Rfam assigns this 115-nucleotide RNA from Clostridium uliginosum to the family "FMN riboswitch aptamer (RFN element)".

[Rfam]
RNA sequence: AUGUAUCUUCAGGGUUUGGUGAAAUUCCAUACCGGUGGUAAAGCCCACGAGCCGCAAGGCAUGAUUCGGUGAAAUUCCGAGGCCGACAGUAAAGUCUGGAUAAAAGAAGAUGAAU
Numbered sequence: 001a002u003g004u005a006u007c008u009u010c011a012g013g014g015u016u017u018g019g020u021g022a023a024a025u026u027c028c029a030u031a032c033c034g035g036u037g038g039u040a041a042a043g044c045c046c047a048c049g050a051g052c053c054g055c056a057a058g059g060c061a062u063g064a065u066u067c068g069g070u071g072a073a074a075u076u077c078c079g080a081g082g083c084c085g086a087c088a089g090u091a092a093a094g095u096c097u098g099g100a101u102a103a104a105a106g107a108a109g110a111u112g113a114a115u
Base pairs, nucleotide, nucleotide: 004112005111006110007109008108009107010106017029018028019027031095032094033085034084035048036047037046038045043083044082053059065081066080067079068078069077087098088097089096
The match comes from Rfam's covariance-model search (110 bits).